[Rfam]
RNA sequence: GAUGCGGACGGCCUCCGAGUCCCGGAGUCCUACGGCGGCUGGUCACCGCUAGGGAGUCGGGACCGAUAGGGUCGAGGCAGGAAACUCCUCGGCCUCCCGUGUUCGGAAAGGAGUCGACAUGACAGACCGC
Numbered sequence: 001g002a003u004g005c006g007g008a009c010g011g012c013c014u015c016c017g018a019g020u021c022c023c024g025g026a027g028u029c030c031u032a033c034g035g036c037g038g039c040u041g042g043u044c045a046c047c048g049c050u051a052g053g054g055a056g057u058c059g060g061g062a063c064c065g066a067u068a069g070g071g072u073c074g075a076g077g078c079a080g081g082a083a084a085c086u087c088c089u090c091g092g093c094c095u096c097c098c099g100u101g102u103u104c105g106g107a108a109a110g111g112a113g114u115c116g117a118c119a120u121g122a123c124a125g126a127c128c129g130c
Base pairs, nucleotide, nucleotide: 003124004123011115013113014112015111016110019063020062021061022060023059024058025057028055029054030053034050035049036048037047069095070094071093072092073091074090075089076088077087079086080085096106097105
RNA: Molybdenum/Tungsten riboswitch aptamer (Moco RNA motif)